[Rfam]
RNA sequence: AGAAUAAACGGGAAUGAAGUUCUCCCGAAGUAACCAGAUUACUUGAACCGCUUUAAAAGCUGAUGACUUCUGCGACGAA
Numbered sequence: 001a002g003a004a005u006a007a008a009c010g011g012g013a014a015u016g017a018a019g020u021u022c023u024c025c026c027g028a029a030g031u032a033a034c035c036a037g038a039u040u041a042c043u044u045g046a047a048c049c050g051c052u053u054u055a056a057a058a059g060c061u062g063a064u065g066a067c068u069u070c071u072g073c074g075a076c077g078a079a
Stems, first nucleotide, its partner, number of pairs: 010025003016070006050060003
RNA: Fluoride riboswitch aptamer (crcB RNA motif)